[Rfam]
RNA sequence: CCUCCGCUCUUCCCGCACAGGAGAGCGGACCGAGGACCCGACGCUCUCUGCCCUGACCGCGUCGGAUCCUCCCGGUCGGCCGGCCAGUACCGCACAUUCUGGCGGCUGACGCACCUGAAGGGCUGCGGUGCCGUGGGCGGGUUGAGGGUCCCGCCCUGGCGC
Numbered sequence: 001c002c003u004c005c006g007c008u009c010u011u012c013c014c015g016c017a018c019a020g021g022a023g024a025g026c027g028g029a030c031c032g033a034g035g036a037c038c039c040g041a042c043g044c045u046c047u048c049u050g051c052c053c054u055g056a057c058c059g060c061g062u063c064g065g066a067u068c069c070u071c072c073c074g075g076u077c078g079g080c081c082g083g084c085c086a087g088u089a090c091c092g093c094a095c096a097u098u099c100u101g102g103c104g105g106c107u108g109a110c111g112c113a114c115c116u117g118a119a120g121g122g123c124u125g126c127g128g129u130g131c132c133g134u135g136g137g138c139g140g141g142u143u144g145a146g147g148g149u150c151c152c153g154c155c156c157u158g159g160c161g162c
Stems, first nucleotide, its partner, number of pairs: 003029004008024005032071005038065004043060002045056002076109007086100002112130004120124001135156007
RNA: Streptomyces sRNA scr5239
Organism: Streptomyces alboniger